Notes: The record is a 76-nucleotide RNA from Oryzias latipes, which matches "mir-27 microRNA precursor family" in Rfam. The literature on the family includes a 2005 paper in Genes Dev by Chen et al., "The developmental miRNA profiles of zebrafish as determined by small RNA cloning". Taxonomically the source falls in Oryzias (Eukaryota, Bilateria, Gnathostomata, Teleostomi). Its family is annotated with miRNA-mediated post-transcriptional gene silencing and RISC complex in the Gene Ontology. Rfam 15.1 lists 1,440 matches to the family in 645 species. The base pairs follow the family's consensus structure, which was predicted with RNAalifold.
[Rfam]
RNA sequence: GUCAGGCGUGGAACUUAGUUGACUUCUGAACAGAGUCUUUCAAGCGUGUUCACAGUGACUAAGUUCUUCUCUCGAG
Numbered sequence: 001g002u003c004a005g006g007c008g009u010g011g012a013a014c015u016u017a018g019u020u021g022a023c024u025u026c027u028g029a030a031c032a033g034a035g036u037c038u039u040u041c042a043a044g045c046g047u048g049u050u051c052a053c054a055g056u057g058a059c060u061a062a063g064u065u066c067u068u069c070u071c072u073c074g075a076g
Stems, first nucleotide, its partner, number of pairs: 011066010027052006
Dot-bracket structure: ..........((((((((((......((((((..............))))))....))))))))))..........